[Rfam]
RNA sequence: GGUCAAUGAUGUGAUUUAAAAGGUCUGAAAUCCAGGUCUCCUCCCAGUCCUUCCGCCCCUCUUCAUUUUUCCCAGCAUGCUCUAGUUGUGCAUUGCUGGUUCGAGGUGGCGGUUGAUACUAUGGACGUUUUUGCUGAUUUAAGAGUCUUUUAGAGAACCGAGUGAGACCUCGACAGCAGCAUCCUACAGAACUACAACACAAAGGAGGGCUGGACAGGAGGAGAACGUUAAACUGGUGCAUGAUCUCAAGUUUUCAAGCUGAGGCC
Numbered sequence: 001g002g003u004c005a006a007u008g009a010u011g012u013g014a015u016u017u018a019a020a021a022g023g024u025c026u027g028a029a030a031u032c033c034a035g036g037u038c039u040c041c042u043c044c045c046a047g048u049c050c051u052u053c054c055g056c057c058c059c060u061c062u063u064c065a066u067u068u069u070u071c072c073c074a075g076c077a078u079g080c081u082c083u084a085g086u087u088g089u090g091c092a093u094u095g096c097u098g099g100u101u102c103g104a105g106g107u108g109g110c111g112g113u114u115g116a117u118a119c120u121a122u123g124g125a126c127g128u129u130u131u132u133g134c135u136g137a138u139u140u141a142a143g144a145g146u147c148u149u150u151u152a153g154a155g156a157a158c159c160g161a162g163u164g165a166g167a168c169c170u171c172g173a174c175a176g177c178a179g180c181a182u183c184c185u186a187c188a189g190a191a192c193u194a195c196a197a198c199a200c201a202a203a204g205g206a207g208g209g210c211u212g213g214a215c216a217g218g219a220g221g222a223g224a225a226c227g228u229u230a231a232a233c234u235g236g237u238g239c240a241u242g243a244u245c246u247c248a249a250g251u252u253u254u255c256a257a258g259c260u261g262a263g264g265c266c
Base pairs, nucleotide, nucleotide: 001266002265003264004263034246035245036244037243038242039222040221041220042219043218044217056207058205059204061112062111064109072099073098074097075096076095077094080090123184124183125182127180128179129178142170143169146166148164150162151161